[Rfam]
A member of the RNA family "Small nucleolar RNA SNORD42" from Leptobrachium leishanense, 67 nucleotides long. From the family's description: snoRNA U42 is found in intron 3 of the ribosomal protein L23a (RPL23a) gene in humans and is also present in mice. The family has 7 seed sequences and 848 matches in Rfam 15.1.

RNA sequence: AUGCAAUUGAUGGAAAACAUAACUUUGUCUGAAUUCUUUUGAUGCUUCAAAGGAACCACUGAUGCAU
Numbered sequence: 001a002u003g004c005a006a007u008u009g010a011u012g013g014a015a016a017a018c019a020u021a022a023c024u025u026u027g028u029c030u031g032a033a034u035u036c037u038u039u040u041g042a043u044g045c046u047u048c049a050a051a052g053g054a055a056c057c058a059c060u061g062a063u064g065c066a067u
Stems, first nucleotide, its partner, number of pairs: 001067005
The family's consensus secondary structure was predicted with PFOLD. The source organism's lineage runs through Eukaryota, Vertebrata, Euteleostomi, Tetrapoda and Leptobrachium. It is annotated as a C/D-box small nucleolar RNA. It scores 46 bits against the family's covariance model.